[Rfam]
RNA: mraW RNA
RNA sequence: GGUGGUUGGUGCACCGCGGCCUCUAUCCGGUUGACCCCCUGACGUACUUCCCCAACGCCAGGUGCUCCACCCGGAUGGAGACCACGGAGCACCCGCCAGGGCUG
Numbered sequence: 001g002g003u004g005g006u007u008g009g010u011g012c013a014c015c016g017c018g019g020c021c022u023c024u025a026u027c028c029g030g031u032u033g034a035c036c037c038c039c040u041g042a043c044g045u046a047c048u049u050c051c052c053c054a055a056c057g058c059c060a061g062g063u064g065c066u067c068c069a070c071c072c073g074g075a076u077g078g079a080g081a082c083c084a085c086g087g088a089g090c091a092c093c094c095g096c097c098a099g100g101g102c103u104g
Base pairs, nucleotide, nucleotide: 010091011090012089014087015086016085018083019082021080022079023078024077025076026075027074028073029072030071032069033068036064038062039061040060041059043057044056045055